[Rfam]
RNA sequence: AGAGGUCCUCUGUGGCCUGGGUGGAACGCUUGCCUCAUCGCCACGGUGACAAAGCAAGCAUUCCGCCAGGCCGCUCACGCUGCCUGC
Numbered sequence: 001a002g003a004g005g006u007c008c009u010c011u012g013u014g015g016c017c018u019g020g021g022u023g024g025a026a027c028g029c030u031u032g033c034c035u036c037a038u039c040g041c042c043a044c045g046g047u048g049a050c051a052a053a054g055c056a057a058g059c060a061u062u063c064c065g066c067c068a069g070g071c072c073g074c075u076c077a078c079g080c081u082g083c084c085u086g087c
Stems, first nucleotide, its partner, number of pairs: 004084003012074006020067007028059006038049004
Dot-bracket structure: ...(((.....((((((..(((((((.((((((....((((....))))....)))))).))))))).)))))).......)))...

mir-9195 microRNA precursor family: an 87-nucleotide RNA sequence from Eptesicus fuscus. Its family is annotated with miRNA-mediated post-transcriptional gene silencing and RISC complex in the Gene Ontology. The family's consensus secondary structure was predicted with RNAalifold. The sequence is in the family's curated seed alignment. NCBI's taxonomy places the organism under Eukaryota, Theria, Yangochiroptera, Vespertilionidae, Eptesicus.